[Rfam]
RNA sequence: CUAUGGGGGACCCCAAAAACCACCCUAUAGGGUCUGUGAGAACUGCCCUAUGGGGGACCCCAAAAACUGCCCUAUGGGGUCUGUGAGAACUGCCCUAUGGGGGACCCCAAAAACUGCCCUAUAGGGUCUGUGAGAACUGCCCUAUGGGGGACCCUAAA
Number, nucleotide and partner (000 for none) at each position: 001c000002u017003a000004u015005g014006g013007g012008g000009g000010a000011c000012c007013c006014c005015a004016a000017a002018a000019a000020c000021c000022a000023c000024c000025c000026u042027a000028u040029a000030g060031g059032g058033u057034c056035u000036g000037u000038g000039a000040g028041a000042a026043c000044u000045g000046c055047c054048c053049u000050a000051u000052g000053g048054g047055g046056g034057a033058c032059c031060c030061c000062a000063a000064a000065a000066a000067c000068u000069g000070c000071c000072c000073u088074a000075u000076g108077g107078g106079g105080u104081c103082u000083g000084u000085g000086a000087g000088a073089a000090c000091u000092g000093c102094c101095c100096u000097a000098u000099g000100g095101g094102g093103g081104a080105c079106c078107c077108c076109a000110a000111a000112a000113a000114c000115u000116g138117c000118c000119c000120u134121a000122u000123a155124g154125g153126g152127u151128c150129u000130g000131u000132g000133a000134g120135a000136a000137c000138u116139g000140c149141c148142c147143u000144a000145u000146g000147g142148g141149g140150g128151a127152c126153c125154c124155u123156a000157a000158a000
Source information
This 158-nucleotide RNA sequence from Callipepla squamata belongs to the Rfam family "STAXI RNA". A search with the family's covariance model found it, with a score of 46 bits. NCBI's taxonomy places the organism under Eukaryota, Eumetazoa, Amniota, Galliformes, Callipepla. Pairs were carried over by alignment from the consensus structure, which is taken from published work.